[Rfam]
Overview
The family of this 37-nucleotide RNA sequence from Candidatus Viridilinea mediisalina is "CRISPR RNA direct repeat element". NCBI's taxonomy places the organism under Bacteria, Bacillati, Chloroflexota, Oscillochloridaceae, Candidatus Viridilinea. Rfam links the family to the GO term defense response. The base pairs follow the family's consensus structure, which was predicted with WAR.
RNA sequence: CUUCGAUCUACUGCCCCGCUAUGAAGGGGUUUGAAAC
Numbered sequence: 001c002u003u004c005g006a007u008c009u010a011c012u013g014c015c016c017c018g019c020u021a022u023g024a025a026g027g028g029g030u031u032u033g034a035a036a037c
Stems, first nucleotide, its partner, number of pairs: 012033002014029004